This 305-nucleotide sequence from Corymbia citriodora belongs to the Rfam family "Plant signal recognition particle RNA". The family's consensus secondary structure is taken from published work. The family is grouped with related families in Rfam's "SRP clan". The match comes from Rfam's covariance-model search (184 bits).

[Rfam]
RNA sequence: GCCGACCUUAGUUGCACGGGCUUGCAACCCGACUGGGGGCAUGAGUGUGAUGGGACAUGGGUUCGGUACUUGAGGGCCGGGCCUGCUGUGUCUCUCUUUCAGCUUGCCCGUUCCAAGCUGAGAGUGGAUCCAUGCGGGCUGGGUGAAGGCUUGGGCCGCUUGGGUACCAGAGCCACAGGGGUCCGCAUGAGACUGGAUUCACAGAGCAGUGAAAACCUCCCGUUCCCGGCAGUGGAAGGGUAACGGGCCGGUGCCAUUCGGGUCCACUCGGCCUAAUGGGCCGAAUCCUCUGGACCACCACUUUA
Number, nucleotide and partner (000 for none) at each position: 001g040002c039003c038004g023005a022006c000007c020008u019009u018010a000011g000012u000013u000014g000015c000016a000017c000018g009019g008020g007021c000022u005023u004024g000025c000026a000027a000028c037029c036030c035031g000032a000033c000034u000035g030036g029037g028038g003039g002040c001041a000042u000043g000044a304045g303046u000047g301048u300049g299050a000051u297052g296053g295054g000055a000056c292057a291058u000059g289060g288061g287062u285063u284064c283065g282066g281067u280068a000069c279070u278071u000072g000073a000074g274075g273076g272077c271078c270079g265080g264081g263082c262083c261084u260085g259086c000087u000088g257089u256090g255091u000092c000093u253094c000095u000096c000097u000098u000099u251100c250101a000102g248103c247104u246105u245106g244107c000108c239109c238110g000111u237112u236113c235114c234115a233116a000117g230118c229119u228120g227121a000122g225123a224124g223125u222126g000127g000128a165129u164130c163131c162132a161133u000134g159135c158136g157137g156138g000139c154140u153141g152142g151143g150144u149145g000146a000147a000148g000149g144150c143151u142152u141153g140154g139155g000156c137157c136158g135159c134160u000161u132162g131163g130164g129165u128166a000167c172168c000169a000170g000171a000172g167173c000174c000175a000176c000177a218178g217179g216180g000181g000182u000183c000184c000185g000186c211187a210188u209189g000190a000191g000192a000193c204194u203195g202196g000197a000198u000199u000200c000201a000202c195203a194204g193205a000206g000207c000208a000209g188210u187211g186212a000213a000214a000215a000216c179217c178218u177219c000220c000221c000222g125223u124224u123225c122226c000227c120228g119229g118230c117231a000232g000233u115234g114235g113236a112237a111238g109239g108240g000241u000242a000243a000244c106245g105246g104247g103248c102249c000250g100251g099252u000253g093254c000255c090256a089257u088258u000259c085260g084261g083262g082263u081264c080265c079266a000267c000268u000269c000270g078271g077272c076273c075274u074275a000276a000277u000278g070279g069280g067281c066282c065283g064284a063285a062286u000287c061288c060289u059290c000291u057292g056293g000294a000295c053296c052297a051298c000299c049300a048301c047302u000303u045304u044305a000